Notes: The family of this 117-nucleotide RNA from Brassica napus is "MIR398 microRNA precursor family". Rfam 15.1 lists 627 matches to the family in 211 species. Pairs were carried over by alignment from the consensus structure, which was predicted with WAR. It scores 70 bits against the family's covariance model.
RNA sequence: AGGAUCUCGACAGGGUCGAUAUGAGAACACAUGUGCAGACAACGGCUGUAAUGACACCACGUCAUUAGAACAAAUCUUUCUUUUCAUGUGUUCUCAGGUCACCCCUGCUGAGCUCCU
Numbered sequence: 001a002g003g004a005u006c007u008c009g010a011c012a013g014g015g016u017c018g019a020u021a022u023g024a025g026a027a028c029a030c031a032u033g034u035g036c037a038g039a040c041a042a043c044g045g046c047u048g049u050a051a052u053g054a055c056a057c058c059a060c061g062u063c064a065u066u067a068g069a070a071c072a073a074a075u076c077u078u079u080c081u082u083u084u085c086a087u088g089u090g091u092u093c094u095c096a097g098g099u100c101a102c103c104c105c106u107g108c109u110g111a112g113c114u115c116c117u
Base pairs, nucleotide, nucleotide: 007111008110011107012106013105014104018100019099023095024094025093026092027091028090029089030088031087032086
Dot-bracket structure: ......((..((((...((...((((((((((.....................................................))))))))))...))...))))..))......